[Rfam]
RNA sequence: UCUGGUGAUGCUGUAGCAGCACGGAAUGGUUUGUGGGUAACACAGAUGCAGGCCAUACUGUGCUGCAACAGUACAGCUUGA
Numbered sequence: 001u002c003u004g005g006u007g008a009u010g011c012u013g014u015a016g017c018a019g020c021a022c023g024g025a026a027u028g029g030u031u032u033g034u035g036g037g038u039a040a041c042a043c044a045g046a047u048g049c050a051g052g053c054c055a056u057a058c059u060g061u062g063c064u065g066c067a068a069c070a071g072u073a074c075a076g077c078u079u080g081a
Base pairs, nucleotide, nucleotide: 001081002080004078005077006076013069014068016066017065018064019063020062021061022060023059024058026056027055028054029053030052031051032050033049034048035047
RNA: mir-15 microRNA precursor family